[Rfam]
RNA sequence: CUUGGAUUCGCAGGAGAGCGAGCGCCGACGGCGACGUCGGCGCUCCGCCGAAGGAGCAAUCUCCCAUGAACUCUCAGGCUCAAGUACUGCGAAUCCUCG
Numbered sequence: 001c002u003u004g005g006a007u008u009c010g011c012a013g014g015a016g017a018g019c020g021a022g023c024g025c026c027g028a029c030g031g032c033g034a035c036g037u038c039g040g041c042g043c044u045c046c047g048c049c050g051a052a053g054g055a056g057c058a059a060u061c062u063c064c065c066a067u068g069a070a071c072u073c074u075c076a077g078g079c080u081c082a083a084g085u086a087c088u089g090c091g092a093a094u095c096c097u098c099g
Base pairs, nucleotide, nucleotide: 006094007093008092009091010090011089012088013087020045021044022043023042024041025040026039027038028037047079048078049077050075051074054073055072056071060066
The family of this 99-nucleotide RNA sequence from Steroidobacter agaridevorans is "Glycine riboswitch aptamer".
It scores 56 bits against the family's covariance model.